RNA sequence: GGGGGGUGUUUCCAGGGGCGGUGGCUGCUUGUAGCCAUGGGAUCUCCAACUGCAUGCCAGAGUAAUGGGGAGGCUUUGACAGCCCAGGUCAUCACAGUGCCUGCAGCUGCCACUCAGCUUCUGUAUAG
Numbered sequence: 001g002g003g004g005g006g007u008g009u010u011u012c013c014a015g016g017g018g019c020g021g022u023g024g025c026u027g028c029u030u031g032u033a034g035c036c037a038u039g040g041g042a043u044c045u046c047c048a049a050c051u052g053c054a055u056g057c058c059a060g061a062g063u064a065a066u067g068g069g070g071a072g073g074c075u076u077u078g079a080c081a082g083c084c085c086a087g088g089u090c091a092u093c094a095c096a097g098u099g100c101c102u103g104c105a106g107c108u109g110c111c112a113c114u115c116a117g118c119u120u121c122u123g124u125a126u127a128g
Stems, first nucleotide, its partner, number of pairs: 012040002017036003021032003067121001070120003082110002085103004
Shown here is a 128-nucleotide RNA, a member of the family "Small nucleolar RNA SNORA44".
Rfam's curators write: ACA44 is a member of the H/ACA class of snoRNA that guide the sites of modification of uridines to pseudouridines.
A reference for the family is Huttenhofer et al. (2001), "RNomics: an experimental approach that identifies 201 candidates for novel, small, non-messenger RNAs in mouse", EMBO J.
Rfam 15.1 lists 1,056 matches to the family in 599 species.
The family's consensus secondary structure was predicted with PFOLD.
Rfam's curators put it in the seed alignment.